[Rfam]
RNA sequence: UGUCGGGGGGAGGAAUCGACUUGACUUUAUUAUAAAUUAGUCAGUCUUUUUCUCUCUCCUAUA
Numbered sequence: 001u002g003u004c005g006g007g008g009g010g011a012g013g014a015a016u017c018g019a020c021u022u023g024a025c026u027u028u029a030u031u032a033u034a035a036a037u038u039a040g041u042c043a044g045u046c047u048u049u050u051u052c053u054c055u056c057u058c059c060u061a062u063a
Stems, first nucleotide, its partner, number of pairs: 001063003005059004010054004015049001018046004024041003
RNA: mir-14 microRNA precursor family